The family of this 102-nucleotide RNA from Alsobacter soli is "TPP riboswitch aptamer (THI element)".
RNA sequence: CGCCCAUCCGAGGGGCGCCCGCAAGGGCUGAGACGGCGCAGGCCGAACCCUUUGAACCUGAUCCGGGUCGUACCGGCGGAGGGACAGGACACAUCUUGCCGC
Numbered sequence: 001c002g003c004c005c006a007u008c009c010g011a012g013g014g015g016c017g018c019c020c021g022c023a024a025g026g027g028c029u030g031a032g033a034c035g036g037c038g039c040a041g042g043c044c045g046a047a048c049c050c051u052u053u054g055a056a057c058c059u060g061a062u063c064c065g066g067g068u069c070g071u072a073c074c075g076g077c078g079g080a081g082g083g084a085c086a087g088g089a090c091a092c093a094u095c096u097u098g099c100c101g102c
Stems, first nucleotide, its partner, number of pairs: 007089003011051004016045001017028004035044003057082003063076004
Vitamin B(1) in its active form thiamin pyrophosphate (TPP) is an essential coenzyme that is synthesised by coupling of pyrimidine and thiazole moieties in bacteria. The previously detected thiamin-regulatory element, thi box was extended, resulting in a new, highly conserved RNA secondary structure, the THI element, which is widely distributed in eubacteria and also occurs in some archaea.
Taxonomically the source falls in Alsobacter (Bacteria, Pseudomonadota, Alphaproteobacteria, Alsobacteraceae).